[Rfam]
RNA sequence: GUGUUUUUCAUGGUAUUAGAUUUAAGGUUAAUGAAGAUUGGUUGUCGUGAGACAACCUUUUUUUGUU
Numbered sequence: 001g002u003g004u005u006u007u008u009c010a011u012g013g014u015a016u017u018a019g020a021u022u023u024a025a026g027g028u029u030a031a032u033g034a035a036g037a038u039u040g041g042u043u044g045u046c047g048u049g050a051g052a053c054a055a056c057c058u059u060u061u062u063u064u065g066u067u
Stems, first nucleotide, its partner, number of pairs: 040057007
This 67-nucleotide RNA from Coprobacter secundus belongs to the Rfam family "Bacteroidetes FopS (family of paralogous sRNAs)". Rfam 15.1 lists 822 matches to the family in 178 species. The family's consensus secondary structure is taken from published work. By type it is a small RNA. Rfam links the family to the GO term sRNA-mediated gene silencing. The organism belongs to Coprobacter secundus, within Bacteria. The match comes from Rfam's covariance-model search (80 bits). Rfam's curators write: The RNA-binding protein RbpB and BTncRNA_FopS sRNA are involved in the post-transcription regulation of polysaccharide utilisation loci (PUL). FopS sRNAs function as post-transcriptional repressors by binding to the vicinity of the start codon of the first mRNA of target PUL polycistrons, typically corresponding to the cognate SusC homolog, impeding translation of the respective glycan transporter.